Notes
Shown here is a 117-nucleotide sequence from Pseudolycoriella hygida, a member of the family "Group II catalytic intron D1-D4-2". Group II introns are found in rRNA, tRNA and mRNA of organelles in fungi, plants and protists, and also in mRNA in bacteria. The literature on the family includes a 2001 paper in Trends Genet by Bonen and Vogel, "The ins and outs of group II introns".

RNA sequence: GAAGGAAGGUCCUUCGAAAUCGGUUUUCAGGAACAGGUUUCAAACCACCUUAAGUGGCUCUAUUUAAGAGGUAGGGUCAUAAGCGUUAAGGAAAAAUCAGCAUAUAAGCUGGAAGGU
Numbered sequence: 001g002a003a004g005g006a007a008g009g010u011c012c013u014u015c016g017a018a019a020u021c022g023g024u025u026u027u028c029a030g031g032a033a034c035a036g037g038u039u040u041c042a043a044a045c046c047a048c049c050u051u052a053a054g055u056g057g058c059u060c061u062a063u064u065u066a067a068g069a070g071g072u073a074g075g076g077u078c079a080u081a082a083g084c085g086u087u088a089a090g091g092a093a094a095a096a097u098c099a100g101c102a103u104a105u106a107a108g109c110u111g112g113a114a115g116g117u
Stems, first nucleotide, its partner, number of pairs: 001015005016041006023034004046116001048091006054080002057077003061073004097112005